Source information
The record is a 98-nucleotide RNA sequence from Brockia lithotrophica, which matches "c-di-GMP-I riboswitch aptamer" in Rfam. From the family's description: GEMM was predicted in a large-scale screen for bacterial structured RNA regulatory elements. The source organism's lineage runs through Bacteria, Bacillota, Thermicanales, Thermicanaceae and Brockia. The match comes from Rfam's covariance-model search (69 bits).

[Rfam]
RNA sequence: GACCGUUCAGGGCAAACGACGCGAAAGCGUCGGACGCAAAGCUACAGGGGCUACCGCGGAGGAAGAGUCUACCUCCGCCACGCCAGCCAGCUGCCGGU
Numbered sequence: 001g002a003c004c005g006u007u008c009a010g011g012g013c014a015a016a017c018g019a020c021g022c023g024a025a026a027g028c029g030u031c032g033g034a035c036g037c038a039a040a041g042c043u044a045c046a047g048g049g050g051c052u053a054c055c056g057c058g059g060a061g062g063a064a065g066a067g068u069c070u071a072c073c074u075c076c077g078c079c080a081c082g083c084c085a086g087c088c089a090g091c092u093g094c095c096g097g098u
Stems, first nucleotide, its partner, number of pairs: 012037002017032006040092004047088002049084003056078007